[Rfam]
RNA sequence: GGCGGGGUAGCUCAGUUGGUUAGAGCACAGGAUUCAUAACCCUGAGGCCACGAGUUCAAAUCUCGUCCCCGCUA
Number, nucleotide and partner (000 for none) at each position: 001g073002g072003c071004g070005g069006g068007g067008u000009a000010g026011c025012u024013c023014a000015g000016u000017u000018g000019g000020u000021u000022a000023g013024a012025g011026c010027a000028c044029a043030g042031g041032a000033u000034u000035c000036a000037u000038a000039a000040c000041c031042c030043u029044g028045a000046g000047g000048c000049c000050a066051c065052g064053a063054g062055u000056u000057c000058a000059a000060a000061u000062c054063u053064c052065g051066u050067c007068c006069c005070c004071g003072c002073u001074a000

The record is a 74-nucleotide sequence from Hymenobacter oligotrophus, which matches "tRNA" in Rfam. NCBI's taxonomy places the organism under Bacteria, Bacteroidota, Cytophagia, Hymenobacteraceae, Hymenobacter. The family's RNA type in Rfam is transfer RNA. A search with the family's covariance model found it, with a score of 71 bits. Pairs were carried over by alignment from the consensus structure, which is taken from published work. Gene Ontology term of the family: triplet codon-amino acid adaptor activity. On this family, see Hou, Trends Biochem Sci 1993: "The tertiary structure of tRNA and the development of the genetic code".